The family of this 83-nucleotide RNA from Owenia fusiformis is "mir-277 microRNA precursor family". The family's consensus secondary structure was predicted with RNAalifold. Rfam 15.1 lists 170 matches to the family in 166 species. For this family Rfam cites "MicroRNAs of Bombyx mori identified by Solexa sequencing" (Liu et al., BMC Genomics, 2010). It scores 44 bits against the family's covariance model. Rfam links the family to the GO terms miRNA-mediated post-transcriptional gene silencing and RISC complex.
RNA sequence: GUUAUAGCAUGAUACAUGCCAGAAAUGCAUUUUACAUUGUUUUGAAUUGUAAAUGCAUUUUCUGGUAUGUAAUCAAGCUAUGC
Numbered sequence: 001g002u003u004a005u006a007g008c009a010u011g012a013u014a015c016a017u018g019c020c021a022g023a024a025a026u027g028c029a030u031u032u033u034a035c036a037u038u039g040u041u042u043u044g045a046a047u048u049g050u051a052a053a054u055g056c057a058u059u060u061u062c063u064g065g066u067a068u069g070u071a072a073u074c075a076a077g078c079u080a081u082g083c
Stems, first nucleotide, its partner, number of pairs: 008077001010075002015069009025058001027056006034050003